Background: Rfam assigns this 110-nucleotide sequence from Otolemur garnettii to the family "Y RNA". The literature on the family includes a 2000 paper in Nucleic Acids Res by Teunissen et al., "Conserved features of Y RNAs: a comparison of experimentally derived secondary structures". Y RNAs are components of the Ro ribonucleoprotein particle (Ro RNP), in association with Ro60 and La proteins. The Y RNAs and Ro60 and La proteins are well conserved, but the function of the Ro RNP is not known. In humans the RNA component can be one of four small RNAs -- hY1, hY3, hY4 and hY5. It scores 41 bits against the family's covariance model. NCBI's taxonomy places the organism under Eukaryota, Teleostomi, Tetrapoda, Lorisiformes, Otolemur.

RNA sequence: AGCUGGUCUGAAGGUAGUGAGUGACCUCACGUGAUUGUUCACAGUCAGUGACAGGUCGAACUCCUUGUUCCUUUCUUCCCCCCCUUCUCGCUACUGCACUUGACUAAAAA
Numbered sequence: 001a002g003c004u005g006g007u008c009u010g011a012a013g014g015u016a017g018u019g020a021g022u023g024a025c026c027u028c029a030c031g032u033g034a035u036u037g038u039u040c041a042c043a044g045u046c047a048g049u050g051a052c053a054g055g056u057c058g059a060a061c062u063c064c065u066u067g068u069u070c071c072u073u074u075c076u077u078c079c080c081c082c083c084c085u086u087c088u089c090g091c092u093a094c095u096g097c098a099c100u101u102g103a104c105u106a107a108a109a110a
Stems, first nucleotide, its partner, number of pairs: 004106005010101002014097002016092006044074001048070001